[Rfam]
RNA: Small nucleolar RNA SNORD63
RNA sequence: GUGCCAUGAUGUUAACUCUCAACACAUCAUUCCGAAGAAGAAUUGUGUGGAGACCUUCUGCAACUGAGCACC
Numbered sequence: 001g002u003g004c005c006a007u008g009a010u011g012u013u014a015a016c017u018c019u020c021a022a023c024a025c026a027u028c029a030u031u032c033c034g035a036a037g038a039a040g041a042a043u044u045g046u047g048u049g050g051a052g053a054c055c056u057u058c059u060g061c062a063a064c065u066g067a068g069c070a071c072c
Base pairs, nucleotide, nucleotide: 001071002070003069004068